[Rfam]
RNA sequence: GGCACACGCUAGGGGUCCUGCAAUUCGCAUUGUUUCGCGAGGCGCGGGUGAGAAACACCCUCUGAACCUGAUCUGGAUAAUGCCAGCGAAGGGAAGCAUGUCGACCAUGGC
Numbered sequence: 001g002g003c004a005c006a007c008g009c010u011a012g013g014g015g016u017c018c019u020g021c022a023a024u025u026c027g028c029a030u031u032g033u034u035u036c037g038c039g040a041g042g043c044g045c046g047g048g049u050g051a052g053a054a055a056c057a058c059c060c061u062c063u064g065a066a067c068c069u070g071a072u073c074u075g076g077a078u079a080a081u082g083c084c085a086g087c088g089a090a091g092g093g094a095a096g097c098a099u100g101u102c103g104a105c106c107a108u109g110g111c
Stems, first nucleotide, its partner, number of pairs: 006099001008097003011061004016055001017048005067092003073086004